[Rfam]
Record summary: The record is a 148-nucleotide sequence, which matches "IMES-5 RNA" in Rfam. Rfam's curators put it in the seed alignment. Pairs were carried over by alignment from the consensus structure, which is taken from published work. The family's RNA type in Rfam is small RNA.

RNA sequence: UAUUUCGGAAAGAAUUGGACCUCGAGACCCAAAUCAGGAAGAAAAUGGACAGAAGAAGAAGGGUGAAAUAGUUAAUUUAUUAACAUAUGCGAGUCAAAAAGGGUAUUGACCGCACAGUGAUAAACCCGCACUGAACCCUUCAACUUCG
Number, nucleotide and partner (000 for none) at each position: 001u047002a046003u045004u044005u043006c000007g000008g000009a000010a000011a000012g000013a000014a034015u033016u031017g030018g029019a000020c000021c000022u000023c000024g000025a000026g000027a000028c000029c018030c017031a016032a000033a015034u014035c000036a000037g000038g000039a000040a000041g000042a000043a005044a004045a003046u002047g001048g000049a000050c000051a000052g147053a146054a145055g144056a000057a000058g141059a140060a139061g138062g137063g136064u000065g000066a000067a000068a000069u000070a000071g000072u000073u082074a081075a080076u000077u000078u000079a000080u075081u074082a073083a000084c000085a000086u000087a000088u114089g113090c112091g111092a000093g110094u109095c108096a107097a106098a000099a000100a000101g000102g000103g000104u000105a000106u097107u096108g095109a094110c093111c091112g090113c089114a088115c133116a132117g131118u130119g129120a000121u000122a000123a000124a000125c000126c000127c000128g000129c119130a118131c117132u116133g115134a000135a000136c063137c062138c061139u060140u059141c058142a000143a000144c055145u054146u053147c052148g000